A member of the RNA family "transfer-messenger RNA" from Syntrophothermus lipocalidus, 351 nucleotides long. Pairs were carried over by alignment from the consensus structure, which is taken from published work. Rfam classes the family as a non-coding RNA gene. A search with the family's covariance model found it, with a score of 208 bits. Rfam's curators write: Bacterial tmRNA, also known as 10Sa RNA or SsrA, is named for its dual tRNA and mRNA-like properties. Its role is to liberate the mRNA from a stalled ribosome. The organism belongs to Syntrophothermus lipocalidus, within Bacteria.
[Rfam]
RNA sequence: GGGGGCGUAAUGGUUUCGACGGGGGAAUAGAUGGGUUGAGUAGCGAGCCGAGUUGCCGCCAGCUCGUUAAAACGGCGGGAAAACAAUAACUGCCAACAACGAAUUAGCUCUGGCAGCUUAGUGCUGCCACGUCCGGCUGGCCAGCCCUACGGGUCAGUGCAGGGCGUCACCUAGUAGGGAUACUCUGGAAGCCUUUCUCCCUGGGGGCCUUCAAGGGAAACACACAGGGAUAGCCUGAGGGUAGCCUGUCUGUGGGCGGCCUGAGGGCGAAAAGCAAAACACAGACUGCGCUCGGAGAGACUCGGCUGGUCUUUCUUCCGGACGGGGGUUCGACUCCCCCCGCCUCCACCA
Numbered sequence: 001g002g003g004g005g006c007g008u009a010a011u012g013g014u015u016u017c018g019a020c021g022g023g024g025g026a027a028u029a030g031a032u033g034g035g036u037u038g039a040g041u042a043g044c045g046a047g048c049c050g051a052g053u054u055g056c057c058g059c060c061a062g063c064u065c066g067u068u069a070a071a072a073c074g075g076c077g078g079g080a081a082a083a084c085a086a087u088a089a090c091u092g093c094c095a096a097c098a099a100c101g102a103a104u105u106a107g108c109u110c111u112g113g114c115a116g117c118u119u120a121g122u123g124c125u126g127c128c129a130c131g132u133c134c135g136g137c138u139g140g141c142c143a144g145c146c147c148u149a150c151g152g153g154u155c156a157g158u159g160c161a162g163g164g165c166g167u168c169a170c171c172u173a174g175u176a177g178g179g180a181u182a183c184u185c186u187g188g189a190a191g192c193c194u195u196u197c198u199c200c201c202u203g204g205g206g207g208c209c210u211u212c213a214a215g216g217g218a219a220a221c222a223c224a225c226a227g228g229g230a231u232a233g234c235c236u237g238a239g240g241g242u243a244g245c246c247u248g249u250c251u252g253u254g255g256g257c258g259g260c261c262u263g264a265g266g267g268c269g270a271a272a273a274g275c276a277a278a279a280c281a282c283a284g285a286c287u288g289c290g291c292u293c294g295g296a297g298a299g300a301c302u303c304g305g306c307u308g309g310u311c312u313u314u315c316u317u318c319c320g321g322a323c324g325g326g327g328g329u330u331c332g333a334c335u336c337c338c339c340c341c342g343c344c345u346c347c348a349c350c351a
Stems, first nucleotide, its partner, number of pairs: 001347007020320008032309001034307008044294005049066005054080001056078005111129007130166005138156005145179006183217004188212004200229003233268004239262004244257003248286004252280002324340005